[Rfam]
Nucleotides: 089
Base pairs, nucleotide, nucleotide: 001089002088003087004086
Number, partner (000 for none) and nucleotide at each position: 001089a002088a003087g004086c005000c006000a007000u008000g009000a010000c011000g012000a013000c014000a015000c016000c017000u018000g019000c020000g021000c022000u023000c024000u025000a026000g027000u028000g029000a030000a031000g032000g033000c034000c035000a036000g037000g038000g039000u040000u041000c042000u043000u044000c045000g046000c047000a048000a049000u050000c051000g052000g053000c054000u055000g056000a057000u058000c059000u060000u061000c062000a063000g064000a065000c066000g067000a068000c069000a070000g071000u072000a073000g074000c075000a076000g077000c078000g079000c080000u081000u082000c083000u084000g085000a086004g087003c088002u089001u